RNA sequence: GGUGCCAUGGGAGGGAUUCCAAUCCAGCCUUAGGAAAAGAAACCUUCCACGGGAGUCUUGGAGAUUGACCACCAUCCUAAUGACUUG
Number, nucleotide and partner (000 for none) at each position: 001g000002g086003u000004g084005c000006c082007a081008u080009g078010g077011g076012a075013g000014g073015g072016a000017u000018u000019c000020c067021a066022a065023u064024c063025c000026a000027g000028c061029c060030u000031u000032a000033g000034g000035a000036a000037a059038a058039g057040a056041a000042a000043c053044c052045u051046u000047c000048c000049a000050c000051g045052g044053g043054a000055g000056u040057c039058u038059u037060g029061g028062a000063g024064a023065u022066u021067g020068a000069c000070c000071a000072c015073c014074a000075u012076c011077c010078u009079a000080a008081u007082g006083a000084c004085u000086u002087g000

The record is an 87-nucleotide sequence from Equus asinus, which matches "mir-9014 microRNA precursor family" in Rfam.
Taxonomically the source falls in Equus (Eukaryota, Mammalia, Laurasiatheria, Perissodactyla).
Its family is annotated with RISC complex and miRNA-mediated post-transcriptional gene silencing in the Gene Ontology.
Pairs were carried over by alignment from the consensus structure, which was predicted with RNAalifold.